The record is a 95-nucleotide RNA sequence from Corchorus olitorius, which matches "MIR2275 microRNA precursor family" in Rfam.
[Rfam]
RNA sequence: AUGCUGCAUGUGAGAAUUGGAGGGAACUAAUUAAGCUGUUAAUAAAAGCCAUUUAUAUGCUUAUUUAGUUUCCUCCAAUAUCUCAUAUCCAGUCU
Number, nucleotide and partner (000 for none) at each position: 001a000002u000003g000004c092005u091006g090007c000008a088009u000010g000011u085012g084013a083014g082015a000016a079017u078018u077019g076020g075021a074022g000023g072024g071025a070026a069027c068028u067029a066030a065031u000032u063033a062034a061035g060036c000037u000038g000039u000040u000041a000042a000043u000044a000045a000046a000047a000048g000049c000050c000051a000052u000053u000054u000055a000056u000057a000058u000059g000060c035061u034062u033063a032064u000065u030066u029067a028068g027069u026070u025071u024072c023073c000074u021075c020076c019077a018078a017079u016080a000081u000082c014083u013084c012085a011086u000087a000088u008089c000090c006091a005092g004093u000094c000095u000

The family has 13 seed sequences and 785 matches in Rfam 15.1.